RNA sequence: ACCGACCUCGUCCAAGGGGAUAUGGAUGUCCUAUGAUCGUAUAGUGAGGGCAUUCGUGCUGACACCCUUCGCAAAUUUGCAACCCCCGCAUGAUUUGUCAUAUCAUGACGGAAUUUUUGGAGCC
Numbered sequence: 001a002c003c004g005a006c007c008u009c010g011u012c013c014a015a016g017g018g019g020a021u022a023u024g025g026a027u028g029u030c031c032u033a034u035g036a037u038c039g040u041a042u043a044g045u046g047a048g049g050g051c052a053u054u055c056g057u058g059c060u061g062a063c064a065c066c067c068u069u070c071g072c073a074a075a076u077u078u079g080c081a082a083c084c085c086c087c088g089c090a091u092g093a094u095u096u097g098u099c100a101u102a103u104c105a106u107g108a109c110g111g112a113a114u115u116u117u118u119g120g121a122g123c124c
Base pairs, nucleotide, nucleotide: 006018007017008016021058022057023056025054026053027052028051029050030049031048038044085111086110088109091105092104093103094102096100
Shown here is a 124-nucleotide RNA from Orchesella cincta, a member of the family "U4atac minor spliceosomal RNA". On this family, see Lorkovic et al., RNA 2005: "Evolutionary conservation of minor U12-type spliceosome between plants and humans". The match comes from Rfam's covariance-model search (60 bits). The organism belongs to Orchesella, within Eukaryota. About the family: U4atac is an essential component of the minor U12-type spliceosome complex which is required for removal of the rarer class of eukaryotic introns (AT-AC, U12-type).